Plastid-ccsA-ndhD-2 3UTR RNA: a 49-nucleotide sequence from Carpinus fangiana. The family's RNA type in Rfam is cis-regulatory element. A reference for the family is Richter et al. (2023), "Retrograde signaling in plants: A critical review focusing on the GUN pathway and beyond", Plant Commun. Lineage of the source: Eukaryota > Streptophyta > Embryophyta > rosids > Carpinus.
RNA sequence: UUUGUAAGAACCUUUUGAAUCACUACUUUGAUUCAAAAGGUUCUCGAAG
Numbered sequence: 001u002u003u004g005u006a007a008g009a010a011c012c013u014u015u016u017g018a019a020u021c022a023c024u025a026c027u028u029u030g031a032u033u034c035a036a037a038a039g040g041u042u043c044u045c046g047a048a049g
Base pairs, nucleotide, nucleotide: 005046007044008043009042010041011040012039013038014037015036016035017034018033019032020031021030022029
About the family: Plastid ccsA-ndhD-2 is a non-coding RNA (ncRNA) recognised in plastids. It was found in the three prime untranslated region (3UTR) of ccsA and ndhD genes, its 3UTR location suggests a role in transcript maturation. The match comes from Rfam's covariance-model search (52 bits).